[Rfam]
RNA sequence: CUCUUCCGUGGCGAUGGAUCUCCGCCGAGGCAGCCCCGUGGGAGUGUCUGAACCGCCCCGGACCGGGGCUGAUGGUUCCUUCCCUCGC
Numbered sequence: 001c002u003c004u005u006c007c008g009u010g011g012c013g014a015u016g017g018a019u020c021u022c023c024g025c026c027g028a029g030g031c032a033g034c035c036c037c038g039u040g041g042g043a044g045u046g047u048c049u050g051a052a053c054c055g056c057c058c059c060g061g062a063c064c065g066g067g068g069c070u071g072a073u074g075g076u077u078c079c080u081u082c083c084c085u086c087g088c
Stems, first nucleotide, its partner, number of pairs: 010026004016079003020075002055069004
Rfam assigns this 88-nucleotide RNA from Nocardia mangyaensis to the family "Fluoride riboswitch aptamer (crcB RNA motif)".